[Rfam]
RNA: mir-223 microRNA precursor family
Organism: Muraenolepis orangiensis
RNA sequence: UCCACCUCCUGCAGGCAUCCCACUUAGUGUAUUUGACAAGCUGAGCUGGACACUAAAAUUACUGAGUGUCAGUUUGUCAAAUACCCCAAGUGAGACGUCACUAGUC
Numbered sequence: 001u002c003c004a005c006c007u008c009c010u011g012c013a014g015g016c017a018u019c020c021c022a023c024u025u026a027g028u029g030u031a032u033u034u035g036a037c038a039a040g041c042u043g044a045g046c047u048g049g050a051c052a053c054u055a056a057a058a059u060u061a062c063u064g065a066g067u068g069u070c071a072g073u074u075u076g077u078c079a080a081a082u083a084c085c086c087c088a089a090g091u092g093a094g095a096c097g098u099c100a101c102u103a104g105u106c
Base pairs, nucleotide, nucleotide: 021092022091023090024089027086029084030083031082032081033080034079035078036077037076038075039074040073041072042071049070050069051068052067054065